[Rfam]
RNA: tp2
RNA sequence: UGUAUUCCUUAUCUAUCUAAUACGUUGAUUUAGCUGGAACCUGUCCCAUUGCACUCUUUGUUCUUCAUAUUUCAGGUUGUCUCUUGGUUGGCUGCGCUUAUUCACCCCGGUCACAUAGCUCACUAUGCUCCCGGGAUUCACGCGCUUGCCGCCGCGAUACAACCCGAACUAUUUUGAACAACCAAAAGCACAAUAAGACAGGUUCUGCGUUUAGUUGCCGCGCUCUAAAAAUUG
Numbered sequence: 001u002g003u004a005u006u007c008c009u010u011a012u013c014u015a016u017c018u019a020a021u022a023c024g025u026u027g028a029u030u031u032a033g034c035u036g037g038a039a040c041c042u043g044u045c046c047c048a049u050u051g052c053a054c055u056c057u058u059u060g061u062u063c064u065u066c067a068u069a070u071u072u073c074a075g076g077u078u079g080u081c082u083c084u085u086g087g088u089u090g091g092c093u094g095c096g097c098u099u100a101u102u103c104a105c106c107c108c109g110g111u112c113a114c115a116u117a118g119c120u121c122a123c124u125a126u127g128c129u130c131c132c133g134g135g136a137u138u139c140a141c142g143c144g145c146u147u148g149c150c151g152c153c154g155c156g157a158u159a160c161a162a163c164c165c166g167a168a169c170u171a172u173u174u175u176g177a178a179c180a181a182c183c184a185a186a187a188g189c190a191c192a193a194u195a196a197g198a199c200a201g202g203u204u205c206u207g208c209g210u211u212u213a214g215u216u217g218c219c220g221c222g223c224u225c226u227a228a229a230a231a232u233u234g
Base pairs, nucleotide, nucleotide: 002218003217004216022210023209024208025207036206037205038204039203040202041201042200043199044198045197048194049193050192051191054188055187057185058184